[Rfam]
RNA sequence: UAGACUUCUGGAAAUGAAGUGCUUCCAUGGCAAAAACUGCCAAAACCGCAAGUAUGCUGAUGACUUCUACGACGAA
Numbered sequence: 001u002a003g004a005c006u007u008c009u010g011g012a013a014a015u016g017a018a019g020u021g022c023u024u025c026c027a028u029g030g031c032a033a034a035a036a037c038u039g040c041c042a043a044a045a046c047c048g049c050a051a052g053u054a055u056g057c058u059g060a061u062g063a064c065u066u067c068u069a070c071g072a073c074g075a076a
Stems, first nucleotide, its partner, number of pairs: 010026004016067005048057003
This 76-nucleotide sequence from Proteiniclasticum ruminis belongs to the Rfam family "Fluoride riboswitch aptamer (crcB RNA motif)".